[Rfam]
RNA: tRNA
Organism: Flavobacterium sp. 316
RNA sequence: GGCUUCGUAGUUCAACUGGAUAGAAUGACGGAUUUCGGCUCCGUUGGUUGCAGGUUCGAAUCCUGCCGAAGUCA
Numbered sequence: 001g002g003c004u005u006c007g008u009a010g011u012u013c014a015a016c017u018g019g020a021u022a023g024a025a026u027g028a029c030g031g032a033u034u035u036c037g038g039c040u041c042c043g044u045u046g047g048u049u050g051c052a053g054g055u056u057c058g059a060a061u062c063c064u065g066c067c068g069a070a071g072u073c074a
Stems, first nucleotide, its partner, number of pairs: 001073007010026004028044005050066005